[Rfam]
sucC RNA: a 67-nucleotide RNA from Pseudomonas fulva. It is annotated as a cis-regulatory element. A search with the family's covariance model found it, with a score of 70 bits.

Nucleotides: 067
Stems, first nucleotide, its partner, number of pairs: 009034006016027004
Number, partner (000 for none) and nucleotide at each position: 001000g002000c003000c004000a005000c006000a007000g008000g009034u010033g011032g012031u013030g014029c015000g016027g017026c018025a019024c020000g021000u022000g023000a024019g025018u026017g027016c028000a029014g030013c031012a032011c033010c034009g035000a036000u037000g038000c039000g040000c041000a042000a043000u044000a045000c046000c047000u048000a049000a050000a051000c052000g053000a054000a055000g056000a057000c058000g059000g060000u061000a062000g063000a064000c065000a066000a067000g
Lineage of the source: Bacteria > Gammaproteobacteria > Pseudomonadaceae > Pseudomonas > Pseudomonas fulva.